Rfam assigns this 195-nucleotide RNA from Musa balbisiana to the family "MIR159 microRNA precursor family". Taxonomically the source falls in Musa (Eukaryota, Viridiplantae, Spermatophyta, Petrosaviidae). Its family is annotated with miRNA-mediated post-transcriptional gene silencing and RISC complex in the Gene Ontology. It scores 103 bits against the family's covariance model. A reference for the family is Jones-Rhoades and Bartel (2004), "Computational identification of plant microRNAs and their targets, including a stress-induced miRNA", Mol Cell.
RNA sequence: GGGGGAUCUAAAGAGCUCUCUUCAGUCCAAUCUACGAGGGGAAGAGAGUAUCUCCGUCUGCUGGUUCAUGAAUACCUUUGGGGUGCAACCCCAUGCGGUCGCAGGGUGCACCCCACUGGUGGGCAUGCAUCAGGAGACGACCUUGCUCCCCUUCUUCUCAUGCUUGGAUUGAAGGGAGCUCCUCUCUCUCUCUCU
Numbered sequence: 001g002g003g004g005g006a007u008c009u010a011a012a013g014a015g016c017u018c019u020c021u022u023c024a025g026u027c028c029a030a031u032c033u034a035c036g037a038g039g040g041g042a043a044g045a046g047a048g049u050a051u052c053u054c055c056g057u058c059u060g061c062u063g064g065u066u067c068a069u070g071a072a073u074a075c076c077u078u079u080g081g082g083g084u085g086c087a088a089c090c091c092c093a094u095g096c097g098g099u100c101g102c103a104g105g106g107u108g109c110a111c112c113c114c115a116c117u118g119g120u121g122g123g124c125a126u127g128c129a130u131c132a133g134g135a136g137a138c139g140a141c142c143u144u145g146c147u148c149c150c151c152u153u154c155u156u157c158u159c160a161u162g163c164u165u166g167g168a169u170u171g172a173a174g175g176g177a178g179c180u181c182c183u184c185u186c187u188c189u190c191u192c193u194c195u
Stems, first nucleotide, its partner, number of pairs: 013181008023171007036158001058136002061133003067127004075119001